RNA: Small nucleolar RNA SNORA9
Organism: Sciurus carolinensis
RNA sequence: UAGCAAGUCUUCACAUACUUGGGUCUAAAGUGACCCCUGCUCCUCCAGUGCUUAACAGAACAGUUCUGAAGUGGUUUGAGGCCUUGCCUGCUCCAUUCAGAGCAAGGUUAUAGAAAGUUUAGACAACU
Numbered sequence: 001u002a003g004c005a006a007g008u009c010u011u012c013a014c015a016u017a018c019u020u021g022g023g024u025c026u027a028a029a030g031u032g033a034c035c036c037c038u039g040c041u042c043c044u045c046c047a048g049u050g051c052u053u054a055a056c057a058g059a060a061c062a063g064u065u066c067u068g069a070a071g072u073g074g075u076u077u078g079a080g081g082c083c084u085u086g087c088c089u090g091c092u093c094c095a096u097u098c099a100g101a102g103c104a105a106g107g108u109u110a111u112a113g114a115a116a117g118u119u120u121a122g123a124c125a126a127c128u
Stems, first nucleotide, its partner, number of pairs: 005053004021036005067121004082107006088100003